Bacterial RNase P class B: a 403-nucleotide sequence from Neobacillus massiliamazoniensis. The match comes from Rfam's covariance-model search (313 bits).

[Rfam]
RNA sequence: ACGUUCGGGUAAUCGCUGCAAGAGCUAUUAGCGAAUUGUAGAGGAAAGUCCAUGCUCGCACGGUCUGAGAUGUCCGUAGUGUUCGUGCCUAGUGAAUUCAUAAGCUAGGGCAGUUGGGGAGAAUCUCAACUGACGGCUGGGAAAAUACCUAAGUCUCUAUUGGGAUAUGGUAUGAGUACCUUUAAAAGUGCCACAGUGACGAUGCCUUUCUAGAAAUGGAAAGGGUGGAACGGGUAAACCCCACGAGCGAGAAACCCAAAUUAUGGUAGGGGCACUUUCUCUGAGGAAAUCAACAAGGAGAAGGACAGAUUCCAAAUUGAAUCUGUAGAUAGAUGAUUGCCGCCUUAGUACGAGACAUGAAUGGUCGUUUGAAGUACUUUGGUACAGAACAUGGCUUAUAGAA
Number, nucleotide and partner (000 for none) at each position: 001a000002c000003g000004u403005u402006c401007g399008g341009g340010u339011a338012a337013u336014c335015g000016c041017u040018g039019c038020a037021a036022g000023a000024g000025c000026u000027a000028u000029u000030a000031g000032c000033g000034a000035a000036u021037u020038g019039u018040a017041g016042a000043g000044g000045a000046a397047a396048g395049u000050c394051c393052a392053u391054g390055c251056u250057c249058g248059c247060a077061c076062g075063g074064u000065c072066u000067g000068a000069g000070a000071u000072g065073u000074c063075c062076g061077u060078a000079g000080u000081g000082u000083u246084c245085g244086u243087g242088c109089c108090u107091a106092g105093u104094g000095a000096a000097u000098u000099c000100a000101u000102a000103a000104g093105c092106u091107a090108g089109g088110g134111c132112a131113g130114u129115u128116g127117g126118g125119g124120a000121g000122a000123a000124u119125c118126u117127c116128a115129a114130c113131u112132g111133a000134c110135g241136g240137c000138u000139g181140g180141g179142a000143a000144a000145a000146u172147a171148c170149c169150u000151a000152a000153g166154u165155c164156u163157c162158u000159a000160u000161u000162g157163g156164g155165a154166u153167a000168u000169g149170g148171u147172a146173u000174g000175a000176g000177u000178a000179c141180c140181u139182u000183u000184a000185a000186a000187a000188g239189u238190g235191c234192c233193a000194c000195a000196g000197u000198g000199a000200c000201g000202a000203u000204g000205c224206c223207u222208u221209u220210c219211u218212a217213g000214a000215a000216a000217u212218g211219g210220a209221a208222a207223g206224g205225g000226u000227g000228g000229a000230a000231c000232g000233g192234g191235u190236a000237a000238a189239c188240c136241c135242c087243a086244c085245g084246a083247g059248c058249g057250a056251g055252a000253a000254a000255c271256c270257c269258a000259a000260a000261u000262u000263a000264u000265g000266g000267u000268a000269g257270g256271g255272g000273c000274a000275c304276u303277u302278u301279c300280u299281c298282u000283g000284a000285g000286g000287a000288a000289a000290u000291c000292a000293a000294c000295a000296a000297g000298g281299a280300g279301a278302a277303g276304g275305a326306c325307a324308g323309a322310u321311u320312c319313c000314a000315a000316a000317u000318u000319g312320a311321a310322u309323c308324u307325g306326u305327a000328g000329a000330u000331a000332g000333a000334u000335g014336a013337u012338u011339g010340c009341c008342g000343c382344c381345u000346u000347a378348g377349u376350a375351c374352g000353a000354g000355a000356c000357a000358u000359g000360a000361a000362u000363g000364g000365u000366c000367g000368u000369u000370u000371g000372a000373a000374g351375u350376a349377c348378u347379u000380u000381g344382g343383u000384a000385c000386a000387g000388a000389a000390c054391a053392u052393g051394g050395c048396u047397u046398a000399u007400a000401g006402a005403a004
NCBI's taxonomy places the organism under Bacteria, Bacillota, Caryophanales, Bacillaceae, Neobacillus.